[Rfam]
RNA: Streptomyces RNA 6925
RNA sequence: AGAAUCUCCGUCCGAGCAGAACCGCUCCGGGUGUCCUCGCGAAAAGGUCCGGAUCAGUUCGGUGAAGUGCGCUCACGCCCUUGCCGGGGCGGGAGCGCUGUACUGUCCGGCGUCUGGGAGUUACCGCUCUCAGACGCCGACG
Numbered sequence: 001a002g003a004a005u006c007u008c009c010g011u012c013c014g015a016g017c018a019g020a021a022c023c024g025c026u027c028c029g030g031g032u033g034u035c036c037u038c039g040c041g042a043a044a045a046g047g048u049c050c051g052g053a054u055c056a057g058u059u060c061g062g063u064g065a066a067g068u069g070c071g072c073u074c075a076c077g078c079c080c081u082u083g084c085c086g087g088g089g090c091g092g093g094a095g096c097g098c099u100g101u102a103c104u105g106u107c108c109g110g111c112g113u114c115u116g117g118g119a120g121u122u123a124c125c126g127c128u129c130u131c132a133g134a135c136g137c138c139g140a141c142g
Base pairs, nucleotide, nucleotide: 001104002103007065012062013061014060015059016058017057019055020054025051069098070097071096072095074093076091077090078089079088080087081086108139109138110137111136112135113134114133115132116131117130118129119128120127121126
Dot-bracket structure: ((....(....((((((.((....(.........................)..)).))))))..)...((((.(.((((((....)))))).).))))....))...((((((((((((((....))))))))))))))...